Description
PAGEV RNA: a 216-nucleotide RNA sequence from Vibrio renipiscarius.
[Rfam]
RNA sequence: CUCUGUUUGGACUCAAGAUGUUUUGGACAGAGCGACGCGCAUCAUCCACCGAUCAAGGGAAGUUCCAAAGGUGGACGGUAAAGGCACUAAUCAAAACUAUGCUUCGGCACGAUAAUUCCGCCUCUUGUAGCUGCUAGAGAGGGUAAGCGGAAAAGGAAUAAAUGAUUAGUGUUGUGAGACUGGAAUGGGGGCGAAAGCCUUACUCACAGCGCAGGG
Numbered sequence: 001c002u003c004u005g006u007u008u009g010g011a012c013u014c015a016a017g018a019u020g021u022u023u024u025g026g027a028c029a030g031a032g033c034g035a036c037g038c039g040c041a042u043c044a045u046c047c048a049c050c051g052a053u054c055a056a057g058g059g060a061a062g063u064u065c066c067a068a069a070g071g072u073g074g075a076c077g078g079u080a081a082a083g084g085c086a087c088u089a090a091u092c093a094a095a096a097c098u099a100u101g102c103u104u105c106g107g108c109a110c111g112a113u114a115a116u117u118c119c120g121c122c123u124c125u126u127g128u129a130g131c132u133g134c135u136a137g138a139g140a141g142g143g144u145a146a147g148c149g150g151a152a153a154a155g156g157a158a159u160a161a162a163u164g165a166u167u168a169g170u171g172u173u174g175u176g177a178g179a180c181u182g183g184a185a186u187g188g189g190g191g192c193g194a195a196a197g198c199c200u201u202a203c204u205c206a207c208a209g210c211g212c213a214g215g216g
Stems, first nucleotide, its partner, number of pairs: 001032007045075006062186005085171009172209006189200004
Dot-bracket structure: (((((((..................)))))))............((((((...........[[[[[...)))))).........(((((((((.....................................................................)))))))))((((((....]]]]]..((((....))))...)))))).......
The match comes from Rfam's covariance-model search (126 bits).